A member of the RNA family "mir-2060 microRNA precursor family" from Branchiostoma lanceolatum, 85 nucleotides long.
Its family is annotated with miRNA-mediated post-transcriptional gene silencing and RISC complex in the Gene Ontology.
Taxonomically the source falls in Branchiostoma (Eukaryota, Opisthokonta, Leptocardii, Branchiostomatidae).
RNA sequence: GGUGUGGAUGGUGUUCAGCACCAAGGACAGGUGUGGCUGCCUGUAUGAGUGUGGUGUUCAGCACUAAGGACAGGCGUGGUUGCCU
Numbered sequence: 001g002g003u004g005u006g007g008a009u010g011g012u013g014u015u016c017a018g019c020a021c022c023a024a025g026g027a028c029a030g031g032u033g034u035g036g037c038u039g040c041c042u043g044u045a046u047g048a049g050u051g052u053g054g055u056g057u058u059c060a061g062c063a064c065u066a067a068g069g070a071c072a073g074g075c076g077u078g079g080u081u082g083c084c085u
Base pairs, nucleotide, nucleotide: 009066010065011064012063013062014061015060017058018057019056020055021054022053023052025046027044028043029042030041031040032039033038